Rfam assigns this 77-nucleotide RNA sequence from Alligator sinensis to the family "Mammalian CPEB3 ribozyme". It scores 37 bits against the family's covariance model. NCBI's taxonomy places the organism under Eukaryota, Metazoa, Bilateria, Sarcopterygii, Alligator. The base pairs follow the family's consensus structure, which is taken from published work.
[Rfam]
RNA sequence: GUUGCAAGUUUGAGGCCAUAACAGAAGGGCUCACAGUGCAGUCGUGUCAGAUUUCAACAAAAUCUGCGAUUUCUGCU
Numbered sequence: 001g002u003u004g005c006a007a008g009u010u011u012g013a014g015g016c017c018a019u020a021a022c023a024g025a026a027g028g029g030c031u032c033a034c035a036g037u038g039c040a041g042u043c044g045u046g047u048c049a050g051a052u053u054u055c056a057a058c059a060a061a062a063u064c065u066g067c068g069a070u071u072u073c074u075g076c077u
Stems, first nucleotide, its partner, number of pairs: 014043003020077001022075005027039001029037001048066007